A member of the RNA family "tRNA" from Patiriella regularis, 72 nucleotides long.
The source organism's lineage runs through Eukaryota, Bilateria, Deuterostomia, Valvatacea and Patiriella.
By type it is a transfer RNA.
It is one of the family's seed sequences.

[Rfam]
RNA sequence: UGGGUUGUAGCCUAAUGGAAAGGCAAUUGGCCGUUAACCAGGAGAUAACAAGAUCAAUACUUGUCAACUCAG
Dot-bracket structure: (((((((..((((.......))))..((((.......))))......(((((.......)))))))))))).